[Rfam]
Rfam assigns this 38-nucleotide RNA from Actinokineospora spheciospongiae to the family "L31-Actinobacteria ribosomal protein leader". Pairs were carried over by alignment from the consensus structure, which is taken from published work. Lineage of the source: Bacteria > Bacillati > Actinomycetes > Pseudonocardiales > Actinokineospora. Rfam classes the family as a cis-regulatory leader. Rfam's curators put it in the seed alignment. For this family Rfam cites "Discovery of 20 novel ribosomal leader candidates in bacteria and archaea" (Eckert and Weinberg, BMC Microbiol, 2020).

Nucleotides: 038
Stems, first nucleotide, its partner, number of pairs: 003038003007033004015027005
Number, partner (000 for none) and nucleotide at each position: 001000c002000c003038g004037g005036u006000u007033u008032c009031g010030g011000u012000u013000c014000a015027c016026c017025c018024c019023g020000u021000g022000a023019c024018g025017g026016g027015g028000a029000c030010c031009c032008g033007a034000c035000g036005a037004c038003c